[Rfam]
RNA sequence: GAUUGAAGAUCUUCGACUAAAUGCCGACACGUUCUGUGUCGAACAUCGAAGUCACCACAUCCUGUGGA
Numbered sequence: 001g002a003u004u005g006a007a008g009a010u011c012u013u014c015g016a017c018u019a020a021a022u023g024c025c026g027a028c029a030c031g032u033u034c035u036g037u038g039u040c041g042a043a044c045a046u047c048g049a050a051g052u053c054a055c056c057a058c059a060u061c062c063u064g065u066g067g068a
Base pairs, nucleotide, nucleotide: 011051012050013049014048015047016046026040027039028038029037030036055067056066057065058064
A member of the RNA family "Bacillaceae-1 RNA" from Lederbergia galactosidilytica, 68 nucleotides long.
The source organism's lineage runs through Bacteria, Bacillota, Caryophanales, Bacillaceae and Lederbergia.
A search with the family's covariance model found it, with a score of 57 bits.
The family's RNA type in Rfam is small RNA.